The record is a 40-nucleotide sequence from Acidothermus cellulolyticus, which matches "L31-Actinobacteria ribosomal protein leader" in Rfam. It is annotated as a cis-regulatory leader. The family's consensus secondary structure is taken from published work.
[Rfam]
RNA sequence: CAGGUACCGGUUCACACCGCCACGCGGUGACCCGGCGACC
Numbered sequence: 001c002a003g004g005u006a007c008c009g010g011u012u013c014a015c016a017c018c019g020c021c022a023c024g025c026g027g028u029g030a031c032c033c034g035g036c037g038a039c040c
Base pairs, nucleotide, nucleotide: 003040004039005038007035008034009033010032015029016028017027018026019025020024
For this family Rfam cites "Discovery of 20 novel ribosomal leader candidates in bacteria and archaea" (Eckert and Weinberg, BMC Microbiol, 2020).